[Rfam]
RNA sequence: AAUUUCAUACUGAAAACAAUAUGUAUAACCUCAAUAAUAUGGUUUGAGGGUCUCUACCAGGAACCGUUAAAUCCUGAUUACAAAAGUGCUGUUCACUUUG
Numbered sequence: 001a002a003u004u005u006c007a008u009a010c011u012g013a014a015a016a017c018a019a020u021a022u023g024u025a026u027a028a029c030c031u032c033a034a035u036a037a038u039a040u041g042g043u044u045u046g047a048g049g050g051u052c053u054c055u056a057c058c059a060g061g062a063a064c065c066g067u068u069a070a071a072u073c074c075u076g077a078u079u080a081c082a083a084a085a086g087u088g089c090u091g092u093u094c095a096c097u098u099u100g
Base pairs, nucleotide, nucleotide: 020084022082023081024080025079029049030048031047032046033045034044058076059075060074061073062072